[Rfam]
RNA: Small nucleolar RNA SNORA1
Organism: Fukomys damarensis
Nucleotides: 133
Stems, first nucleotide, its partner, number of pairs: 002059003006055003023040003027036001072126005086112006
Number, partner (000 for none) and nucleotide at each position: 001000a002059g003058c004057c005000u006055c007054a008053u009000u010000c011000u012000a013000g014000a015000u016000g017000a018000g019000a020000a021000c022000a023040g024039g025038c026000a027036c028000u029000g030000u031000u032000g033000u034000u035000g036027g037000g038025g039024u040023c041000c042000a043000a044000a045000a046000u047000u048000g049000g050000u051000c052000a053008g054007u055006g056000u057004g058003g059002c060000u061000g062000a063000a064000a065000u066000u067000g068000c069000g070000c071000c072126a073125c074124a075123g076122g077000u078000c079000a080000c081000a082000c083000u084000u085000c086112c087111a088110u089109c090108g091107c092000a093000g094000u095000a096000a097000g098000c099000a100000u101000a102000c103000u104000a105000c106000a107091g108090u109089g110088g111087u112086g113000a114000c115000a116000g117000u118000g119000a120000g121000g122076c123075c124074u125073g126072u127000a128000a129000c130000a131000u132000u133000u